[Rfam]
RNA: skipping-rope RNA
Organism: Cloacibacillus sp. An23
RNA sequence: AAACCCUGAGGACGGAACGGGCAGCCGUCGCCCCUCGUAAGAGGUUAGGAGAUGCGGAAUCGUCAACCCGCCUGGUUUU
Numbered sequence: 001a002a003a004c005c006c007u008g009a010g011g012a013c014g015g016a017a018c019g020g021g022c023a024g025c026c027g028u029c030g031c032c033c034c035u036c037g038u039a040a041g042a043g044g045u046u047a048g049g050a051g052a053u054g055c056g057g058a059a060u061c062g063u064c065a066a067c068c069c070g071c072c073u074g075g076u077u078u079u
Stems, first nucleotide, its partner, number of pairs: 001079003005075002008072001011029005020064003031049001033044004054071004